This 86-nucleotide sequence from Hibiscus trionum belongs to the Rfam family "Small nucleolar RNA SNORD25".
For this family Rfam cites "Identification of 10 novel snoRNA gene clusters from Arabidopsis thaliana" (Qu et al., Nucleic Acids Res, 2001).
The base pairs follow the family's consensus structure, which was predicted with PFOLD.
Rfam classes the family as a C/D-box small nucleolar RNA.
It scores 53 bits against the family's covariance model.
The family has 12 seed sequences and 985 matches in Rfam 15.1.
RNA sequence: AAGAAGAGUGAUGAAUUAUUACAUACCUGUAAGGAUUUGUGAAUAUGAUCCCAUAUUUUUAUGAACAUCUAAGGGACUGAGUUCUU
Number, nucleotide and partner (000 for none) at each position: 001a000002a085003g084004a083005a082006g000007a000008g000009u000010g000011a000012u000013g000014a000015a000016u000017u000018a000019u000020u000021a000022c000023a000024u000025a000026c000027c000028u000029g000030u000031a000032a000033g000034g000035a000036u000037u000038u000039g000040u000041g000042a000043a000044u000045a000046u000047g000048a000049u000050c000051c000052c000053a000054u000055a000056u000057u000058u000059u000060u000061a000062u000063g000064a000065a000066c000067a000068u000069c000070u000071a000072a000073g000074g000075g000076a000077c000078u000079g000080a000081g000082u005083u004084c003085u002086u000